[Rfam]
Rfam assigns this 33-nucleotide RNA sequence to the family "L31-Firmicutes ribosomal protein leader".
RNA sequence: CUAUAUUUCCGUUCAGGAUUUAUGGCAAAGGAG
Numbered sequence: 001c002u003a004u005a006u007u008u009c010c011g012u013u014c015a016g017g018a019u020u021u022a023u024g025g026c027a028a029a030g031g032a033g
Stems, first nucleotide, its partner, number of pairs: 001025005008018003
It is annotated as a cis-regulatory leader.